[Rfam]
RNA sequence: GGAUCAAUGAUGACAAAAAGUCUCUGAGCACAUUGAUUGACUCAUGACUUUGCCAAUCUGGGGUCC
Numbered sequence: 001g002g003a004u005c006a007a008u009g010a011u012g013a014c015a016a017a018a019a020g021u022c023u024c025u026g027a028g029c030a031c032a033u034u035g036a037u038u039g040a041c042u043c044a045u046g047a048c049u050u051u052g053c054c055a056a057u058c059u060g061g062g063g064u065c066c
Stems, first nucleotide, its partner, number of pairs: 001066005
Dot-bracket structure: (((((........................................................)))))

The family of this 66-nucleotide RNA sequence from Mesocricetus auratus is "Small nucleolar RNA SNORD109A".
Its Rfam clan is "SNORD74 clan".
A reference for the family is Runte et al. (2001), "The IC-SNURF-SNRPN transcript serves as a host for multiple small nucleolar RNA species and as an antisense RNA for UBE3A", Hum Mol Genet.
By type it is a C/D-box small nucleolar RNA.
Rfam links the family to the GO terms nucleolus and RNA processing.
Humans have two copies of the SNORD109 gene, SNORD109A and SNORD109B.
A search with the family's covariance model found it, with a score of 51 bits.